[Rfam]
RNA: SAM riboswitch aptamer (S box leader)
Organism: Sporosarcina sp. Marseille-Q4063
Nucleotides: 120
Base pairs, nucleotide, nucleotide: 001120002119003118004117005116006115007114008113013042016041017040018039022032023031024030026092027091043082044081045080046079048078049077050074051073052072053071054070055069056068057067058066093109094108095107096106097105
Number, partner (000 for none) and nucleotide at each position: 001120c002119u003118c004117u005116u006115a007114u008113c009000c010000c011000g012000a013042g014000c015000u016041g017040g018039u019000g020000g021000a022032g023031g024030g025000g026092c027091a028000g029000u030024c031023c032022c033000u034000a035000u036000g037000a038000a039018a040017c041016c042013c043082g044081g045080c046079a047000a048078c049077c050074u051073g052072u053071a054070u055069g056068a057067a058066c059000c060000u061000a062000u063000g064000a065000u066058g067057u068056u069055c070054a071053u072052g073051c074050a075000a076000a077049g078048g079046u080045g081044c082043u083000a084000a085000a086000c087000c088000u089000g090000a091027u092026g093109c094108a095107a096106g097105g098000u099000g100000a101000a102000a103000u104000u105097c106096c107095u108094u109093g110000g111000a112000u113008g114007a115006u116005a117004a118003g119002a120001g